[Rfam]
RNA sequence: GGGUCAGCUUUAGCUCAGCGGUUACUUCGUCAAGCUUGAAUUAAUCAUUCCAUGAUUCAGUUCAUCCAACCCCUUAGGGUUCGAGGCCCGCGGGCGAUUUCUGACCCUUUU
Numbered sequence: 001g002g003g004u005c006a007g008c009u010u011u012a013g014c015u016c017a018g019c020g021g022u023u024a025c026u027u028c029g030u031c032a033a034g035c036u037u038g039a040a041u042u043a044a045u046c047a048u049u050c051c052a053u054g055a056u057u058c059a060g061u062u063c064a065u066c067c068a069a070c071c072c073c074u075u076a077g078g079g080u081u082c083g084a085g086g087c088c089c090g091c092g093g094g095c096g097a098u099u100u101c102u103g104a105c106c107c108u109u110u111u
Stems, first nucleotide, its partner, number of pairs: 002106006013095004018091004026085004
A member of the RNA family "Vault RNA" from Echinops telfairi, 111 nucleotides long. Pairs were carried over by alignment from the consensus structure, which is taken from published work.